RNA sequence: GUGACGCGGCCGCCUAAUUCGCGAUCUCGCGGAGCCGGGGACCCAAUAUUCCUGGGGUGAAUCGGCGCGUCUCCCACAGGCGCCCGUAGGGCACUUCCACGCCCGAACCCGUCAGCUAACCCGGUAGGCGGUAUGGAAGCAAGCA
Numbered sequence: 001g002u003g004a005c006g007c008g009g010c011c012g013c014c015u016a017a018u019u020c021g022c023g024a025u026c027u028c029g030c031g032g033a034g035c036c037g038g039g040g041a042c043c044c045a046a047u048a049u050u051c052c053u054g055g056g057g058u059g060a061a062u063c064g065g066c067g068c069g070u071c072u073c074c075c076a077c078a079g080g081c082g083c084c085c086g087u088a089g090g091g092c093a094c095u096u097c098c099a100c101g102c103c104c105g106a107a108c109c110c111g112u113c114a115g116c117u118a119a120c121c122c123g124g125u126a127g128g129c130g131g132u133a134u135g136g137a138a139g140c141a142a143g144c145a
Base pairs, nucleotide, nucleotide: 011130012129013128014127018033019032020031021030022029034125035124036123037122038121039120044054045053055110056109057108063086064085065084089104090103091102092101

c-di-AMP riboswitch aptamer (ydaO/yuaA leader): a 145-nucleotide RNA sequence from Nonomuraea solani.